[Rfam]
RNA: mir-1 microRNA precursor family
Organism: Ophiophagus hannah
Nucleotides: 077
Base pairs, nucleotide, nucleotide: 007071008070009069010068011067012066013065014064015063016062017061018060019059020058021057022056027050028049029048030047031046
Number, partner (000 for none) and nucleotide at each position: 001000g002000c003000c004000a005000a006000a007071a008070g009069u010068a011067c012066a013065u014064a015063c016062u017061u018060c019059u020058u021057u022056a023000c024000a025000u026000u027050c028049c029048a030047u031046a032000a033000u034000a035000u036000u037000g038000u039000a040000u041000g042000u043000u044000c045000a046031u047030a048029u049028g050027g051000g052000u053000a054000c055000a056022u057021a058020a059019a060018g061017a062016a063015g064014u065013a066012u067011g068010u069009g070008c071007u072000c073000u074000g075000g076000g077000c